Rfam assigns this 78-nucleotide sequence from Suricata suricatta to the family "Small nucleolar RNA U105B". It scores 75 bits against the family's covariance model. Lineage of the source: Eukaryota > Vertebrata > Teleostomi > Eutheria > Suricata. Rfam links the family to the GO terms nucleolus and RNA processing. Clan: SNORD105 clan.
[Rfam]
RNA sequence: CUGCGUGCGGCUGAUGAGUGUUCCUGCUGAGGCUCUGUGAUUGCUCAGCUUCAAAGUAAAUGCCCUGACGCCCUGCGG
Numbered sequence: 001c002u003g004c005g006u007g008c009g010g011c012u013g014a015u016g017a018g019u020g021u022u023c024c025u026g027c028u029g030a031g032g033c034u035c036u037g038u039g040a041u042u043g044c045u046c047a048g049c050u051u052c053a054a055a056g057u058a059a060a061u062g063c064c065c066u067g068a069c070g071c072c073c074u075g076c077g078g
Stems, first nucleotide, its partner, number of pairs: 005073001007071003010019003027048005
Dot-bracket structure: ....(.((((((....))).......(((((............)))))....................))).).....

Notes:
For this family Rfam cites "snoSeeker: an advanced computational package for screening of guide and orphan snoRNA genes in the human genome" (Yang et al., Nucleic Acids Res, 2006).